[Rfam]
RNA sequence: AGAAAACAAAAACCCCCAGGUCGCUUUAUUUUGACCUGUGUUAGGGACCA
Numbered sequence: 001a002g003a004a005a006a007c008a009a010a011a012a013c014c015c016c017c018a019g020g021u022c023g024c025u026u027u028a029u030u031u032u033g034a035c036c037u038g039u040g041u042u043a044g045g046g047a048c049c050a
Stems, first nucleotide, its partner, number of pairs: 013046003017038006
Annotation
Turnip crinkle virus 3'UTR: a 50-nucleotide sequence from Betacarmovirus brassicae. A reference for the family is Yuan et al. (2009), "The 3' end of Turnip crinkle virus contains a highly interactive structure including a translational enhancer that is disrupted by binding to the RNA-dependent RNA polymerase", RNA. The family's RNA type in Rfam is cis-regulatory element. The base pairs follow the family's consensus structure, which is taken from published work.